[Rfam]
RNA sequence: CCCUGACAGGCUCACCUGAGUCUGACCCUAGCCACGACAGGAGAUUCCCAUG
Numbered sequence: 001c002c003c004u005g006a007c008a009g010g011c012u013c014a015c016c017u018g019a020g021u022c023u024g025a026c027c028c029u030a031g032c033c034a035c036g037a038c039a040g041g042a043g044a045u046u047c048c049c050a051u052g
Stems, first nucleotide, its partner, number of pairs: 002041004007024005
Mu-gpT-DE RNA: a 52-nucleotide RNA. Rfam's curators put it in the seed alignment. The base pairs follow the family's consensus structure, which is taken from published work.